[Rfam]
RNA sequence: AAGUACACUGAGUGGCCAGAUUAUUAUGCAUCCAGAGAUCAUAAUAAUCUGGCCACUCAGUGUAGUU
Numbered sequence: 001a002a003g004u005a006c007a008c009u010g011a012g013u014g015g016c017c018a019g020a021u022u023a024u025u026a027u028g029c030a031u032c033c034a035g036a037g038a039u040c041a042u043a044a045u046a047a048u049c050u051g052g053c054c055a056c057u058c059a060g061u062g063u064a065g066u067u
Base pairs, nucleotide, nucleotide: 004064005063006062007061008060009059010058011057012056013055014054015053016052017051019049020048021047022046023045024044025043026042027041028040
mir-9256 microRNA precursor family: a 67-nucleotide sequence from Pipistrellus kuhlii. The base pairs follow the family's consensus structure, which was predicted with RNAalifold. A search with the family's covariance model found it, with a score of 82 bits. Taxonomically the source falls in Pipistrellus (Eukaryota, Craniata, Sarcopterygii, Eutheria). Rfam 15.1 lists 31,772 matches to the family in 5 species.